The family of this 190-nucleotide RNA sequence from Amycolatopsis methanolica is "Actinobacteria sRNA Ms_IGR-5". Rfam classes the family as a small RNA. A reference for the family is Li et al. (2013), "Identification of small RNAs in Mycobacterium smegmatis using heterologous Hfq", RNA. Taxonomically the source falls in Amycolatopsis methanolica (Bacteria, Actinomycetota, Actinomycetes, Pseudonocardiales). The base pairs follow the family's consensus structure.
RNA sequence: ACACGGGAAAGGAGGUGGUCCAAAGUUGUGUAGCAACGGGACUCGUGAGGUGGCUGUCCGCUAGCGGAUGCCACACCCUGGACUGCUGGUGAAUACCAGACAGCCACCGCCCCCCGGCGUUUCCGAGCACUGGUCCGGCUCGGGCCCGAACGGCUGACGACGGUCGGGAGUCGCGCCGGGGGUUCCCCCA
Numbered sequence: 001a002c003a004c005g006g007g008a009a010a011g012g013a014g015g016u017g018g019u020c021c022a023a024a025g026u027u028g029u030g031u032a033g034c035a036a037c038g039g040g041a042c043u044c045g046u047g048a049g050g051u052g053g054c055u056g057u058c059c060g061c062u063a064g065c066g067g068a069u070g071c072c073a074c075a076c077c078c079u080g081g082a083c084u085g086c087u088g089g090u091g092a093a094u095a096c097c098a099g100a101c102a103g104c105c106a107c108c109g110c111c112c113c114c115c116g117g118c119g120u121u122u123c124c125g126a127g128c129a130c131u132g133g134u135c136c137g138g139c140u141c142g143g144g145c146c147c148g149a150a151c152g153g154c155u156g157a158c159g160a161c162g163g164u165c166g167g168g169a170g171u172c173g174c175g176c177c178g179g180g181g182g183u184u185c186c187c188c189c190a
Stems, first nucleotide, its partner, number of pairs: 014058006059091007067083001109184001111182010123143006